RNA: Hairy RNA localisation element (HLE)
Organism: Drosophila willistoni
RNA sequence: AGAGACAUUUCACAUCAUUUCGCCAGGAUAACGCAAAUGUUGUUUUGAAGUGCUUUGAAACAUGCGAAAAAUCCUUCAUGGUCUGAAAACAUUUCACUCUGAGUUUACCUUAAAACCAACUCUUAGUGA
Numbered sequence: 001a002g003a004g005a006c007a008u009u010u011c012a013c014a015u016c017a018u019u020u021c022g023c024c025a026g027g028a029u030a031a032c033g034c035a036a037a038u039g040u041u042g043u044u045u046u047g048a049a050g051u052g053c054u055u056u057g058a059a060a061c062a063u064g065c066g067a068a069a070a071a072u073c074c075u076u077c078a079u080g081g082u083c084u085g086a087a088a089a090c091a092u093u094u095c096a097c098u099c100u101g102a103g104u105u106u107a108c109c110u111u112a113a114a115a116c117c118a119a120c121u122c123u124u125a126g127u128g129a
Stems, first nucleotide, its partner, number of pairs: 006052006016039004021033002094129005103121001105119002